[Rfam]
RNA sequence: AGACACCCUUAUGGUGCAGGACUUUCUUCAGUGGGGCUUUGGUGCUCACUGAGUCUGUGUCUUGAGUGUGUCGCU
Numbered sequence: 001a002g003a004c005a006c007c008c009u010u011a012u013g014g015u016g017c018a019g020g021a022c023u024u025u026c027u028u029c030a031g032u033g034g035g036g037c038u039u040u041g042g043u044g045c046u047c048a049c050u051g052a053g054u055c056u057g058u059g060u061c062u063u064g065a066g067u068g069u070g071u072c073g074c075u
Stems, first nucleotide, its partner, number of pairs: 002072005008066004013061006020055003028052008036043002
Rfam assigns this 75-nucleotide sequence from Myotis myotis to the family "mir-9229 microRNA precursor family". Gene Ontology terms of the family: RISC complex and miRNA-mediated post-transcriptional gene silencing.